Rfam assigns this 56-nucleotide RNA from Aminipila terrae to the family "Streptococcus sRNA SpF59 (ldcC RNA)". For this family Rfam cites "Control of virulence by small RNAs in Streptococcus pneumoniae" (Mann et al., PLoS Pathog, 2012).
RNA sequence: UGACCUAACUUAUUCAGUGAAAAAGAGGCCAUACGGACAGCCGGGUCAAAUGCCGA
Number, nucleotide and partner (000 for none) at each position: 001u048002g047003a046004c045005c044006u020007a000008a018009c017010u000011u000012a000013u000014u000015c000016a000017g009018u008019g000020a006021a000022a000023a000024a000025g000026a000027g000028g000029c000030c000031a000032u000033a000034c000035g000036g000037a000038c000039a000040g000041c000042c000043g000044g005045g004046u003047c002048a001049a000050a000051u000052g000053c000054c000055g000056a000

A search with the family's covariance model found it, with a score of 55 bits. The family's RNA type in Rfam is small RNA.